Nucleotides: 156
Base pairs, nucleotide, nucleotide: 003154005152006151007150009146011145012144014142015141016140017139018138019137020136021134022133023132024131025130027129028128035123036122041119042118043117045115048112050110051109052108055104056103058101059100062098063097068092069091072088074086
Number, partner (000 for none) and nucleotide at each position: 001000u002000u003154u004000a005152g006151a007150g008000c009146u010000u011145g012144a013000u014142a015141u016140a017139u018138a019137g020136g021134c022133u023132a024131a025130a026000c027129a028128c029000c030000a031000a032000a033000u034000a035123a036122u037000g038000u039000c040000u041119g042118g043117g044000u045115u046000g047000u048112a049000u050110g051109a052108u053000a054000u055104a056103u057000u058101u059100u060000g061000a062098c063097u064000u065000u066000u067000c068092u069091u070000u071000u072088g073000u074086u075000g076000c077000u078000a079000a080000a081000a082000u083000u084000u085000g086074a087000u088072c089000u090000u091069g092068a093000a094000a095000a096000c097063g098062g099000a100059a101058g102000u103056a104055u105000u106000g107000a108052a109051u110050c111000u112048u113000g114000a115045a116000c117043u118042c119041c120000a121000a122036a123035u124000g125000a126000a127000u128028g129027u130025u131024u132023u133022a134021g135000g136020c137019u138018u139017a140016u141015a142014u143000c144012u145011u146009a147000a148000c149000u150007u151006u152005c153000c154003a155000u156000c
Description:
A member of the RNA family "MIR2912 microRNA precursor family" from Populus deltoides, 156 nucleotides long. Rfam links the family to the GO terms miRNA-mediated post-transcriptional gene silencing and RISC complex. It scores 103 bits against the family's covariance model. Pairs were carried over by alignment from the consensus structure, which was predicted with RNAalifold.